[Rfam]
RNA sequence: CCUUCUUAACAAACCACGGAUCUGUGCCCAGCGGUCCUCUGCGUUCGCGCGUUAGGGUCGACUGCUGUGCAACUCGAUAACUCUAUGGAGCCAUCAAUUUGCUAUGGUGUCAAUCAUCCUAUCGACAGGUCCAAGAACAAUUCGGCCUCUGGCUGCCUCAUUCGCUGUCGCAAGACGGCUUGAGUGUUGUGGCUGGGGGAUUCGGGGGCCCCAUAUUCCAACCCUUUUUUCCAAGGCCGUCGGCCGAUGAGGUUGAGGAAAACCAUGGGAUGCCUACAUCU
Numbered sequence: 001c002c003u004u005c006u007u008a009a010c011a012a013a014c015c016a017c018g019g020a021u022c023u024g025u026g027c028c029c030a031g032c033g034g035u036c037c038u039c040u041g042c043g044u045u046c047g048c049g050c051g052u053u054a055g056g057g058u059c060g061a062c063u064g065c066u067g068u069g070c071a072a073c074u075c076g077a078u079a080a081c082u083c084u085a086u087g088g089a090g091c092c093a094u095c096a097a098u099u100u101g102c103u104a105u106g107g108u109g110u111c112a113a114u115c116a117u118c119c120u121a122u123c124g125a126c127a128g129g130u131c132c133a134a135g136a137a138c139a140a141u142u143c144g145g146c147c148u149c150u151g152g153c154u155g156c157c158u159c160a161u162u163c164g165c166u167g168u169c170g171c172a173a174g175a176c177g178g179c180u181u182g183a184g185u186g187u188u189g190u191g192g193c194u195g196g197g198g199g200a201u202u203c204g205g206g207g208g209c210c211c212c213a214u215a216u217u218c219c220a221a222c223c224c225u226u227u228u229u230u231c232c233a234a235g236g237c238c239g240u241c242g243g244c245c246g247a248u249g250a251g252g253u254u255g256a257g258g259a260a261a262a263c264c265a266u267g268g269g270a271u272g273c274c275u276a277c278a279u280c281u
Stems, first nucleotide, its partner, number of pairs: 018132008026070002029067003033063004037057005042051002078124001080122001082121001086112003090108003140202001142200001146198004151193001156186001157184003164179006207274003210269005224258004231252002235245004
Dot-bracket structure: .................((((((((((.(((.(((((((((((......)).)))))..)))).))).)).......(.(.(...(((.(((.............))).)))........)).))))))))).......(.(...((((.(....((((....((((((....))))))..))).)......).)))).).)....((((((((.........((((...((..((((...)))).....))..))))......)))))..))).......
The record is a 281-nucleotide sequence from Trichoderma arundinaceum, which matches "A. fumigatus sRNA Afu_309" in Rfam. The match comes from Rfam's covariance-model search (152 bits). Rfam 15.1 lists 663 matches to the family in 646 species. The family's RNA type in Rfam is small RNA. The source organism's lineage runs through Eukaryota, Fungi, Pezizomycotina, leotiomyceta and Trichoderma.